Source information: SAM riboswitch aptamer (S box leader): an 89-nucleotide sequence from Baekduia soli. It scores 82 bits against the family's covariance model. A reference for the family is Grundy and Henkin (1998), "The S box regulon: a new global transcription termination control system for methionine and cysteine biosynthesis genes in gram-positive bacteria", Mol Microbiol. NCBI's taxonomy places the organism under Bacteria, Bacillati, Actinomycetota, Solirubrobacterales, Baekduia.
[Rfam]
RNA sequence: UACACGUCCAGAGGGGUGGAGGGACUGGCCCGAUGAAACCCCGGCAACCCCCGCGCAAGCGGGAAGGUGCCAAUUCCUGGAGACGUGUG
Number, nucleotide and partner (000 for none) at each position: 001u089002a088003c087004a086005c085006g084007u083008c082009c000010a000011g000012a000013g042014g041015g040016g039017u038018g000019g000020a000021g031022g030023g029024a000025c079026u000027g077028g076029c023030c022031c021032g000033a000034u000035g000036a000037a000038a017039c016040c015041c014042c013043g071044g070045c069046a068047a000048c067049c066050c063051c062052c061053g060054c000055g000056c000057a000058a000059g000060c053061g052062g051063g050064a000065a000066g049067g048068u046069g045070c044071c043072a000073a000074u000075u081076c028077c027078u000079g025080g000081a075082g008083a007084c006085g005086u004087g003088u002089g001